[Rfam]
RNA sequence: UGUGACCUCCUGGGUUUCCCUUUGUCAUCCUAUGCCUGCAGUUCCUGAUGAGGCUGGGACAGCAAAGGGAGGUUCAGAUGUCGACCUG
Dot-bracket structure: ................((((((.((..(((((.((((.............)))))))))..)).))))))..................

Record summary
A member of the RNA family "mir-204 microRNA precursor family" from Danio rerio, 88 nucleotides long. Gene Ontology terms of the family: RISC complex and miRNA-mediated post-transcriptional gene silencing. The sequence is in the family's curated seed alignment. Lineage of the source: Eukaryota > Gnathostomata > Teleostei > Osteoglossocephalai > Danio.